Overview:
The record is a 130-nucleotide RNA sequence from Vicugna pacos, which matches "Small nucleolar RNA SNORA42/SNORA80 family" in Rfam. Taxonomically the source falls in Vicugna (Eukaryota, Eumetazoa, Vertebrata, Laurasiatheria). Its family is annotated with RNA processing and nucleolus in the Gene Ontology. On this family, see Schattner et al., RNA 2006: "A computational screen for mammalian pseudouridylation guide H/ACA RNAs". The members of this family belong to the H/ACA class of snoRNAs that guide the sites of modification of uridines to pseudouridines. Human ACA42 (SNORA42) was cloned from HeLa cells by immunoprecipitation with anti-GAR1 antibody. Its is predicted to guide the pseudouridylation of residues U109 and U572 of 18S rRNA. ACA42 shares the same host gene with ACA26, ACA46, ACA50. This family also includes mammalian snoRNA ACA67 (SNORA80) which was identified by computational screening and its expression in mouse experimentally verified by Northern blot and primer extension analysis. The base pairs follow the family's consensus structure, which was predicted with RNAalifold.
RNA sequence: GAAAAAAAUCUUUUGGCGGGUCCUCUGUGGGCCUCUCAUAGUACCCAUGCCAGAGAAAAUUGCAGCCUUGAACCACUGCCCAGCCCUCUCACCUGUGUGGGCUGUGAGCACUGAAGAGGGUUAUAUAGUG
Numbered sequence: 001g002a003a004a005a006a007a008a009u010c011u012u013u014u015g016g017c018g019g020g021u022c023c024u025c026u027g028u029g030g031g032c033c034u035c036u037c038a039u040a041g042u043a044c045c046c047a048u049g050c051c052a053g054a055g056a057a058a059a060u061u062g063c064a065g066c067c068u069u070g071a072a073c074c075a076c077u078g079c080c081c082a083g084c085c086c087u088c089u090c091a092c093c094u095g096u097g098u099g100g101g102c103u104g105u106g107a108g109c110a111c112u113g114a115a116g117a118g119g120g121u122u123a124u125a126u127a128g129u130g
Stems, first nucleotide, its partner, number of pairs: 001044001011041002014038003018034003021030002064122005074113002079108001081104006